[Rfam]
A member of the RNA family "tRNA", 72 nucleotides long.
Rfam's curators put it in the seed alignment.
The base pairs follow the family's consensus structure, which is taken from published work.
Its family is annotated with triplet codon-amino acid adaptor activity in the Gene Ontology.
By type it is a transfer RNA.
RNA sequence: GCCCUUUUAACUCAGUGGUAGAGUAACGCCAUGGUAGGGCGUAAGUCAUCGGUUCAAAUCUGAUAAAGGGCU
Numbered sequence: 001g002c003c004c005u006u007u008u009a010a011c012u013c014a015g016u017g018g019u020a021g022a023g024u025a026a027c028g029c030c031a032u033g034g035u036a037g038g039g040c041g042u043a044a045g046u047c048a049u050c051g052g053u054u055c056a057a058a059u060c061u062g063a064u065a066a067a068g069g070g071c072u
Base pairs, nucleotide, nucleotide: 001071002070003069004068005067006066007065010024011023012022013021026042027041028040029039030038048064049063050062051061052060